A member of the RNA family "c-di-AMP riboswitch aptamer (ydaO/yuaA leader)" from Streptomyces phaeofaciens, 156 nucleotides long. The pairing is the family consensus, mapped onto this sequence. The organism belongs to Streptomyces, within Bacteria.
[Rfam]
RNA sequence: ACCGCACACCCACCCGAACGGCAGGAGCGGGGGACCCACAGGUAGAAACGCCUGUUCCGGUCCCGGAACAGGCUUGGGGUAAAGCCGUGCCUCGGCACGACCGGACAUCUCCAGUCCGCACCCGACAGCUCACCUCGCAGGCGCCGGAGAGGAAUU
Numbered sequence: 001a002c003c004g005c006a007c008a009c010c011c012a013c014c015c016g017a018a019c020g021g022c023a024g025g026a027g028c029g030g031g032g033g034a035c036c037c038a039c040a041g042g043u044a045g046a047a048a049c050g051c052c053u054g055u056u057c058c059g060g061u062c063c064c065g066g067a068a069c070a071g072g073c074u075u076g077g078g079g080u081a082a083a084g085c086c087g088u089g090c091c092u093c094g095g096c097a098c099g100a101c102c103g104g105a106c107a108u109c110u111c112c113a114g115u116c117c118g119c120a121c122c123c124g125a126c127a128g129c130u131c132a133c134c135u136c137g138c139a140g141g142c143g144c145c146g147g148a149g150a151g152g153a154a155u156u
Base pairs, nucleotide, nucleotide: 002141003140009025010024027138028137029136030135031134032133037076038075077123078122079121086099087098088097103117104116105115106114